[Rfam]
RNA sequence: GAGUGUUAUGAUGAUGGAAUAGAAUCUCUAUUCUUAGUCUAGCUCUGGUCUACCGCUAGGAUUCUUUCCUAGCGG
Numbered sequence: 001g002a003g004u005g006u007u008a009u010g011a012u013g014a015u016g017g018a019a020u021a022g023a024a025u026c027u028c029u030a031u032u033c034u035u036a037g038u039c040u041a042g043c044u045c046u047g048g049u050c051u052a053c054c055g056c057u058a059g060g061a062u063u064c065u066u067u068c069c070u071a072g073c074g075g
Base pairs, nucleotide, nucleotide: 001045002044003043004042010039011038012037016034017033018032019031020030021029053075054074055073056072057071058070059069060068061067

L17 ribosomal protein downstream element: a 75-nucleotide RNA from Streptococcus sanguinis. The sequence is in the family's curated seed alignment. The family's consensus secondary structure is taken from published work.